[Rfam]
RNA sequence: UAACGGCCGUAUGACUGGCGGAAGUGGACAAACCACGUGGAGUACGGCCCGGUUUGGACGGACGUUUUGCCCCGUCGUGAACAGAAAAGCCGACCGCCUGGGCGUAGUGU
Dot-bracket structure: ....((((((((..(.[[[[[..((((.....))))..)..)))))))).....................................(.(((..]]]]]..))).).....
Numbered sequence: 001u002a003a004c005g006g007c008c009g010u011a012u013g014a015c016u017g018g019c020g021g022a023a024g025u026g027g028a029c030a031a032a033c034c035a036c037g038u039g040g041a042g043u044a045c046g047g048c049c050c051g052g053u054u055u056g057g058a059c060g061g062a063c064g065u066u067u068u069g070c071c072c073c074g075u076c077g078u079g080a081a082c083a084g085a086a087a088a089g090c091c092g093a094c095c096g097c098c099u100g101g102g103c104g105u106a107g108u109g110u
Stems, first nucleotide, its partner, number of pairs: 005049008015039001017098005024036004087105001089103003

Overview: The family of this 110-nucleotide sequence from Ethanoligenens harbinense is "ZMP/ZTP riboswitch aptamer (pfl RNA motif)". For this family Rfam cites "Recognition of the bacterial alarmone ZMP through long-distance association of two RNA subdomains" (Jones and Ferre-D'Amare, Nat Struct Mol Biol, 2015). The family's consensus secondary structure is taken from published work.